[Rfam]
RNA sequence: CACCGAGAAAGGCAAACCCGUCGAGAGGCGGGGACGCAAAGCCAGGGACCUCCCGAGCGGGAGGCGGCCCAGCCGCCGAA
Number, nucleotide and partner (000 for none) at each position: 001c000002a000003c000004c000005g000006a000007g000008a000009a000010a000011g000012g037013c036014a000015a000016a000017c032018c031019c030020g029021u028022c027023g000024a000025g000026a000027g022028g021029c020030g019031g018032g017033g000034a000035c000036g013037c012038a000039a000040a000041g073042c072043c000044a000045g070046g069047g068048a000049c064050c063051u062052c061053c060054c059055g000056a000057g000058c000059g054060g053061g052062a051063g050064g049065c000066g000067g000068c047069c046070c045071a000072g042073c041074c000075g000076c000077c000078g000079a000080a000
RNA: c-di-GMP-I riboswitch aptamer
Organism: Actinoplanes nipponensis